[Rfam]
RNA sequence: CUUUCGUAUAUAAAAUAAGUGCGUAUAAUUUAGGGAAUACGGCCCAAAAGUUUCUACCAGACUGCCGUAAACAGUCUGACUACGCAGAGAAGUUUUCAUAAC
Numbered sequence: 001c002u003u004u005c006g007u008a009u010a011u012a013a014a015a016u017a018a019g020u021g022c023g024u025a026u027a028a029u030u031u032a033g034g035g036a037a038u039a040c041g042g043c044c045c046a047a048a049a050g051u052u053u054c055u056a057c058c059a060g061a062c063u064g065c066c067g068u069a070a071a072c073a074g075u076c077u078g079a080c081u082a083c084g085c086a087g088a089g090a091a092g093u094u095u096u097c098a099u100a101a102c
Base pairs, nucleotide, nucleotide: 020086021085022084023083024082025081029049030048031047033045034044035043058078059077060076061075062074063073064072